[Rfam]
Editing element of GABA-3 exon 9: a 54-nucleotide RNA from Psilopogon haemacephalus. The match comes from Rfam's covariance-model search (75 bits). The family has 52 seed sequences and 4,208 matches in Rfam 15.1. The family's RNA type in Rfam is cis-regulatory element. Lineage of the source: Eukaryota > Euteleostomi > Telluraves > Coraciimorphae > Psilopogon.
RNA sequence: AAAGUGGCCUAUGCUACUGCAAUGGACUGGUUCAUAGCUGUCUGCUAUGCCUUC
Numbered sequence: 001a002a003a004g005u006g007g008c009c010u011a012u013g014c015u016a017c018u019g020c021a022a023u024g025g026a027c028u029g030g031u032u033c034a035u036a037g038c039u040g041u042c043u044g045c046u047a048u049g050c051c052u053u054c
Stems, first nucleotide, its partner, number of pairs: 002053002006051003010047002013045002016041002019038002022035005